[Rfam]
RNA: Archaeal Small RNA 154
Organism: Methanosarcina acetivorans
RNA sequence: CGGUUGCUUGCGAGAUUAUCAAAGCCUCAUUUCACACACACACGAGAAUCGAAACGAUUACUCUAGAAGGAUAGGUUUCAUCCCUUCUUCCUGUCCGUUCCUAACGUGGCUCGUGAGCAACUACCCUCUCA
Numbered sequence: 001c002g003g004u005u006g007c008u009u010g011c012g013a014g015a016u017u018a019u020c021a022a023a024g025c026c027u028c029a030u031u032u033c034a035c036a037c038a039c040a041c042a043c044g045a046g047a048a049u050c051g052a053a054a055c056g057a058u059u060a061c062u063c064u065a066g067a068a069g070g071a072u073a074g075g076u077u078u079c080a081u082c083c084c085u086u087c088u089u090c091c092u093g094u095c096c097g098u099u100c101c102u103a104a105c106g107u108g109g110c111u112c113g114u115g116a117g118c119a120a121c122u123a124c125c126c127u128c129u130c131a
Stems, first nucleotide, its partner, number of pairs: 002122011019104001021102001044063003047059005066100003069096007